[Rfam]
RNA: RNase MRP
RNA sequence: AAACUACUAGACGAAGUGAAUGGGUUGCGGCCGGUGCAGGUAACUUGGCCAGACCCAGGAAAGUCCCCGGGCCCUCAACUGCAGAGAUGCAGGCUUGGAAACGAGUAAAGCUCAAGGCCGUUGGGGUCUGUCCUUACCGUAGGCAAGGCGGGGCUGAGACGAGUGUGGAGCCUUAAUGACCCUAAUGCCGGAGCAAUUUGGCCGAUGCCCACAGUUAUUCACUUGGUCCCUAAGCUUGGACUAACUGAACGGGGCUUAUGAUCUAGUAGUU
Dot-bracket structure: .((((((((((..((((((..((((...........................))))....[[[.[[[[...........((((....)))).(((((....)))))...((.........(.(......(((........((((..............((....))...))))....))).).)........))........................)))))).((((........)))).........]]]]]]]....))))))))))